[Rfam]
RNA sequence: GGAGGGUCUUCCAGUCUGGUGGCUGGCGCGGUCUUCAAAACCGUCUGAAUCGUUGGAGAAACGAUUGGCAGGUUCGAUUCCUGUGACCCUCC
Numbered sequence: 001g002g003a004g005g006g007u008c009u010u011c012c013a014g015u016c017u018g019g020u021g022g023c024u025g026g027c028g029c030g031g032u033c034u035u036c037a038a039a040a041c042c043g044u045c046u047g048a049a050u051c052g053u054u055g056g057a058g059a060a061a062c063g064a065u066u067g068g069c070a071g072g073u074u075c076g077a078u079u080c081c082u083g084u085g086a087c088c089c090u091c092c
Stems, first nucleotide, its partner, number of pairs: 001092008011026006028044005048066005069083004
RNA: Selenocysteine transfer RNA
Organism: Desulfobaculum bizertense